[Rfam]
RNA sequence: GGGUGGUCUGAAGGUAGUGAGUUAAUUCAAUUGAUUGUUCAUGGUCAAUUACAAACCAAUCAGACUCUUUUGUUCUACUCUUUUCCUCUUUCUCACUACUGCACUUGACUAGUCUAAA
Numbered sequence: 001g002g003g004u005g006g007u008c009u010g011a012a013g014g015u016a017g018u019g020a021g022u023u024a025a026u027u028c029a030a031u032u033g034a035u036u037g038u039u040c041a042u043g044g045u046c047a048a049u050u051a052c053a054a055a056c057c058a059a060u061c062a063g064a065c066u067c068u069u070u071u072g073u074u075c076u077a078c079u080c081u082u083u084u085c086c087u088c089u090u091u092c093u094c095a096c097u098a099c100u101g102c103a104c105u106u107g108a109c110u111a112g113u114c115u116a117a118a
Stems, first nucleotide, its partner, number of pairs: 001114002004111005010106002014102002016097006043080002047076001